[Rfam]
RNA sequence: UGUUAGGUUGGUGCAAAAGUAAUUGCGAUUUUUGCCAUUCAAAGUAAUGGCAAAACCGCAAUUACUUUUGCACCAACCUAACA
Numbered sequence: 001u002g003u004u005a006g007g008u009u010g011g012u013g014c015a016a017a018a019g020u021a022a023u024u025g026c027g028a029u030u031u032u033u034g035c036c037a038u039u040c041a042a043a044g045u046a047a048u049g050g051c052a053a054a055a056c057c058g059c060a061a062u063u064a065c066u067u068u069u070g071c072a073c074c075a076a077c078c079u080a081a082c083a
Base pairs, nucleotide, nucleotide: 001083002082003081004080005079006078007077008076009075010074011073012072013071014070015069016068017067018066019065020064021063022062023061024060025059026058027057030055031054032053033052034051035050036049037048038047039046
RNA: mir-548 microRNA precursor family
Organism: Chlorocebus sabaeus